[Rfam]
RNA sequence: UUGCUCUCUCAUUCCCCCUAGUCUGUCACUCACAAGCGCACACUGACAGACUGGGGGAAUGAGAGAGAGCGAUCGGAAAUGGAGACAAAUCAAUGCAAAGGGAAGACCUUUGUGGCAAAGGUCUUCCCUUCGCAUUGAUUUGUCUCCGUUUCUG
Numbered sequence: 001u002u003g004c005u006c007u008c009u010c011a012u013u014c015c016c017c018c019u020a021g022u023c024u025g026u027c028a029c030u031c032a033c034a035a036g037c038g039c040a041c042a043c044u045g046a047c048a049g050a051c052u053g054g055g056g057g058a059a060u061g062a063g064a065g066a067g068a069g070c071g072a073u074c075g076g077a078a079a080u081g082g083a084g085a086c087a088a089a090u091c092a093a094u095g096c097a098a099a100g101g102g103a104a105g106a107c108c109u110u111u112g113u114g115g116c117a118a119a120g121g122u123c124u125u126c127c128c129u130u131c132g133c134a135u136u137g138a139u140u141u142g143u144c145u146c147c148g149u150u151u152c153u154g
Base pairs, nucleotide, nucleotide: 003070004069005068006067008063009062010061011060017057018056019055020052021051022050024048025047026046027045028044074154075153076152079149080148081147082146083145084144085143093135094134095133096132098130100128101127102126103125104124105123106122107121108120109119110118111117112116
Shown here is a 154-nucleotide RNA from Salvator merianae, a member of the family "Small nucleolar RNA SNORA14". Rfam describes the family as follows. ACA14 is a member of the H/ACA class of snoRNA that guide the sites of modification of uridines to pseudouridines. It is annotated as an H/ACA-box small nucleolar RNA. A search with the family's covariance model found it, with a score of 36 bits. Taxonomically the source falls in Salvator (Eukaryota, Euteleostomi, Squamata, Laterata).